[Rfam]
RNA sequence: CCGUGUUCUGUGACUGACUCGGCUUGCGUCGGGCUGGCGGGCGCCCGCCGGUCCGUCACAGAACACGGGA
Numbered sequence: 001c002c003g004u005g006u007u008c009u010g011u012g013a014c015u016g017a018c019u020c021g022g023c024u025u026g027c028g029u030c031g032g033g034c035u036g037g038c039g040g041g042c043g044c045c046c047g048c049c050g051g052u053c054c055g056u057c058a059c060a061g062a063a064c065a066c067g068g069g070a
Base pairs, nucleotide, nucleotide: 001068002067003066004065005064006063007062008061009060010059011058012057013056014055016053017052018051020050021049022048026044027043
RNA: mir-3017 microRNA precursor family
Organism: Acyrthosiphon pisum